Rfam assigns this 183-nucleotide RNA sequence from Centropus unirufus to the family "TUC338". The organism belongs to Centropus, within Eukaryota. By type it is a cis-regulatory element. A search with the family's covariance model found it, with a score of 154 bits.
RNA sequence: UUGACAGCCCUGGAGACUGAAGUCCUCUAUUUAUCCACAGAACAGAUUCAGCGCGGGCAGCGGCAGUGGCAGCUUCGCCCACGCUGCCCCCCCCCUGUGCCUGAACGCUGAGCUGGAGGAACCACCUCUAAAGGUGAGAGGGGGUUGUUCAGUCUCCACGCGCCCACUCAAUCCCCCUCGGCC
Numbered sequence: 001u002u003g004a005c006a007g008c009c010c011u012g013g014a015g016a017c018u019g020a021a022g023u024c025c026u027c028u029a030u031u032u033a034u035c036c037a038c039a040g041a042a043c044a045g046a047u048u049c050a051g052c053g054c055g056g057g058c059a060g061c062g063g064c065a066g067u068g069g070c071a072g073c074u075u076c077g078c079c080c081a082c083g084c085u086g087c088c089c090c091c092c093c094c095c096u097g098u099g100c101c102u103g104a105a106c107g108c109u110g111a112g113c114u115g116g117a118g119g120a121a122c123c124a125c126c127u128c129u130a131a132a133g134g135u136g137a138g139a140g141g142g143g144g145u146u147g148u149u150c151a152g153u154c155u156c157c158a159c160g161c162g163c164c165c166a167c168u169c170a171a172u173c174c175c176c177c178u179c180g181g182c183c
Stems, first nucleotide, its partner, number of pairs: 002170003007163002011158011024143005030138006038110003051100006062088005114130006

The family's consensus secondary structure was predicted with WAR. The family has 34 seed sequences and 75,615 matches in Rfam 15.1. A reference for the family is Braconi et al. (2011), "Expression and functional role of a transcribed noncoding RNA with an ultraconserved element in hepatocellular carcinoma", Proc Natl Acad Sci U S A.